[Rfam]
RNA sequence: UGAUAGCUUGGUAAGAAAACUCAUAUAAUUUCAGAAAUAUGGUCUGAAAGUUUCUACAAGUUACCCGUAAAGUAACUUACUAUGGCAAAGGUAUUGUUUUUC
Numbered sequence: 001u002g003a004u005a006g007c008u009u010g011g012u013a014a015g016a017a018a019a020c021u022c023a024u025a026u027a028a029u030u031u032c033a034g035a036a037a038u039a040u041g042g043u044c045u046g047a048a049a050g051u052u053u054c055u056a057c058a059a060g061u062u063a064c065c066c067g068u069a070a071a072g073u074a075a076c077u078u079a080c081u082a083u084g085g086c087a088a089a090g091g092u093a094u095u096g097u098u099u100u101u102c
Stems, first nucleotide, its partner, number of pairs: 021085005029049007058078007
Shown here is a 102-nucleotide RNA sequence from Vagococcus fluvialis, a member of the family "Purine riboswitch aptamer".
The base pairs follow the family's consensus structure, which is taken from published work.
Lineage of the source: Bacteria > Bacillati > Bacilli > Lactobacillales > Vagococcus.
From the family's description: Riboswitches are metabolite binding domains within certain messenger RNAs that serve as precision sensors for their corresponding targets.